[Rfam]
RNA sequence: CAAUAUUUUAUCAAUAUAGAACACUCAUAUUGAUAAAAUUAUUUGAACUACUU
Numbered sequence: 001c002a003a004u005a006u007u008u009u010a011u012c013a014a015u016a017u018a019g020a021a022c023a024c025u026c027a028u029a030u031u032g033a034u035a036a037a038a039u040u041a042u043u044u045g046a047a048c049u050a051c052u053u
Stems, first nucleotide, its partner, number of pairs: 011033007

Rfam assigns this 53-nucleotide sequence from Dendrosenecio battiscombei to the family "Plastid-atpF group II-D1 intron".
Lineage of the source: Eukaryota > Viridiplantae > Streptophyta > Mesangiospermae > Dendrosenecio.
The literature on the family includes a 2023 paper in Plant Commun by Richter et al., "Retrograde signaling in plants: A critical review focusing on the GUN pathway and beyond".